[Rfam]
RNA sequence: AGCUUUGCGCAGUGGCAGUAUCGUAGCCAAUGAGGUUAAUCUGAGGCGCGAUUAUUGCUAAUUGAAUCCUGUGUACUCAGUACUGGUGAGGCCACACCUGUGUCCAGUUUUGGGCCCCUCACUGUAAGAAAGACAUUGAGG
Numbered sequence: 001a002g003c004u005u006u007g008c009g010c011a012g013u014g015g016c017a018g019u020a021u022c023g024u025a026g027c028c029a030a031u032g033a034g035g036u037u038a039a040u041c042u043g044a045g046g047c048g049c050g051a052u053u054a055u056u057g058c059u060a061a062u063u064g065a066a067u068c069c070u071g072u073g074u075a076c077u078c079a080g081u082a083c084u085g086g087u088g089a090g091g092c093c094a095c096a097c098c099u100g101u102g103u104c105c106a107g108u109u110u111u112g113g114g115c116c117c118c119u120c121a122c123u124g125u126a127a128g129a130a131a132g133a134c135a136u137u138g139a140g141g
Base pairs, nucleotide, nucleotide: 020052021051022050023049024048026047027046028045034042035041080103081102082101083100085098086097087096088095117141118140119139120138
Dot-bracket structure: ...................(((((.(((.....((.....))..))))))))...........................((((.((((......)))).)))).............((((.................))))